[Rfam]
RNA: Bacterial RNase P class A
RNA sequence: UGAGCUGGCCGGGCGGCCGCGUCACCUCAAUUGAGGUGCCGAGGAAGGUCCGGGCUCCGAAGGGCAGGGUGGUGGCCAACAGCCACCCGGGGUGACCCGCGGGACAGUGCCACAGAGAACAGACCGCCCCGACCUCUCCGGAGGGCGGGGUAAGGGUGAAACGGUGGUGUAAGAGACCACCAGCGUGCCGGGUGACCGGUGCGGCUAGGUAAACCCCACCCGGAGCAAGAUCAAGAAGCCGACUCCCUCCGGGGAGACGGUGCGCACGUGCUUGAGGACGGCCCGUCCGAGCGUGCGGGUAGAUCGCUUGAGACUGCUGGCAACAGCAGGUCCAGAUGGAUGGUCGCCAACCGGCUGGUCGCAAGGCCACCGGCGAACAGAACCCGGCCUAUGAGCCAGCUCAUCCG
Numbered sequence: 001u002g003a004g005c006u007g008g009c010c011g012g013g014c015g016g017c018c019g020c021g022u023c024a025c026c027u028c029a030a031u032u033g034a035g036g037u038g039c040c041g042a043g044g045a046a047g048g049u050c051c052g053g054g055c056u057c058c059g060a061a062g063g064g065c066a067g068g069g070u071g072g073u074g075g076c077c078a079a080c081a082g083c084c085a086c087c088c089g090g091g092g093u094g095a096c097c098c099g100c101g102g103g104a105c106a107g108u109g110c111c112a113c114a115g116a117g118a119a120c121a122g123a124c125c126g127c128c129c130c131g132a133c134c135u136c137u138c139c140g141g142a143g144g145g146c147g148g149g150g151u152a153a154g155g156g157u158g159a160a161a162c163g164g165u166g167g168u169g170u171a172a173g174a175g176a177c178c179a180c181c182a183g184c185g186u187g188c189c190g191g192g193u194g195a196c197c198g199g200u201g202c203g204g205c206u207a208g209g210u211a212a213a214c215c216c217c218a219c220c221c222g223g224a225g226c227a228a229g230a231u232c233a234a235g236a237a238g239c240c241g242a243c244u245c246c247c248u249c250c251g252g253g254g255a256g257a258c259g260g261u262g263c264g265c266a267c268g269u270g271c272u273u274g275a276g277g278a279c280g281g282c283c284c285g286u287c288c289g290a291g292c293g294u295g296c297g298g299g300u301a302g303a304u305c306g307c308u309u310g311a312g313a314c315u316g317c318u319g320g321c322a323a324c325a326g327c328a329g330g331u332c333c334a335g336a337u338g339g340a341u342g343g344u345c346g347c348c349a350a351c352c353g354g355c356u357g358g359u360c361g362c363a364a365g366g367c368c369a370c371c372g373g374c375g376a377a378c379a380g381a382a383c384c385c386g387g388c389c390u391a392u393g394a395g396c397c398a399g400c401u402c403a404u405c406c407g
Stems, first nucleotide, its partner, number of pairs: 001403009011392001012348007020041002023038006046390003050387005055225004062284004067221005072086005087101001088099004102216002107214002109210003124155002126151006133144004163181006183205001184203008229305004264296006276288004312331001314329006